[Rfam]
RNA: MIR1886 microRNA precursor family
Organism: Solanum tuberosum
RNA sequence: UGAGAUGGAAUCAUCGUUUGGACAUGCGGUUUUACGUUGAUUCCGUCUCAUG
Number, nucleotide and partner (000 for none) at each position: 001u050002g049003a048004g047005a046006u045007g044008g043009a042010a041011u040012c039013a038014u000015c036016g035017u034018u029019u028020g027021g000022a000023c000024a000025u000026g000027c020028g019029g018030u000031u000032u000033u000034a017035c016036g015037u000038u013039g012040a011041u010042u009043c008044c007045g006046u005047c004048u003049c002050a001051u000052g000